Rfam assigns this 124-nucleotide RNA sequence from Enterobacterales bacterium CwR94 to the family "RtT RNA". The family's consensus secondary structure is taken from published work. NCBI's taxonomy places the organism under Bacteria, Pseudomonadati, Pseudomonadota, Gammaproteobacteria, Enterobacterales. Gene Ontology term of the family: cellular response to amino acid starvation. A search with the family's covariance model found it, with a score of 93 bits. Rfam describes the family as follows. This family represents a bacterial cis-regulatory element known as RtT RNA. The exact function of RtT is unknown although it is thought that it may be involved in changing the cellular response in relation to amino acid starvation.
RNA sequence: GCUAUGUAGAAAUCGUGAAGGAUGCGAACCUGUAGCAGGUUCGAGUCGAACGCAGUGAGACAGCGUUGCGACAGCAACGACCCGCAGGGUGAGGCGAAGCCGAAUCAUCCUGCACGACCCACCA
Numbered sequence: 001g002c003u004a005u006g007u008a009g010a011a012a013u014c015g016u017g018a019a020g021g022a023u024g025c026g027a028a029c030c031u032g033u034a035g036c037a038g039g040u041u042c043g044a045g046u047c048g049a050a051c052g053c054a055g056u057g058a059g060a061c062a063g064c065g066u067u068g069c070g071a072c073a074g075c076a077a078c079g080a081c082c083c084g085c086a087g088g089g090u091g092a093g094g095c096g097a098a099g100c101c102g103a104a105u106c107a108u109c110c111u112g113c114a115c116g117a118c119c120c121a122c123c124a
Base pairs, nucleotide, nucleotide: 015115016114017113019111020110021109023107033091034090036088040086042084043083047057048056064079065078066077067076068075069074
Dot-bracket structure: ..............(((.(((.(.........((.(...(.((...((.......))......((((((....))))))...)).).).))...............).))).))).........